The record is an 81-nucleotide sequence from Flavobacterium branchiophilum, which matches "Flavo-1 RNA" in Rfam. Rfam classes the family as a small RNA. It scores 82 bits against the family's covariance model. NCBI's taxonomy places the organism under Bacteria, Flavobacteriia, Flavobacteriales, Flavobacteriaceae, Flavobacterium.
[Rfam]
RNA sequence: AAAUAGCCCCGAUUGUAGUGGAAAUCCUUUUGUUUUUUUCCUUUAAAAAACAAAAGAUUGUAACGGAAAGCGGGAAUAUGG
Numbered sequence: 001a002a003a004u005a006g007c008c009c010c011g012a013u014u015g016u017a018g019u020g021g022a023a024a025u026c027c028u029u030u031u032g033u034u035u036u037u038u039u040c041c042u043u044u045a046a047a048a049a050a051c052a053a054a055a056g057a058u059u060g061u062a063a064c065g066g067a068a069a070g071c072g073g074g075a076a077u078a079u080g081g
Base pairs, nucleotide, nucleotide: 009073010072011071013069014068018064019063023059024058025057026056029054030053031052032051033050034049035048036047037046038045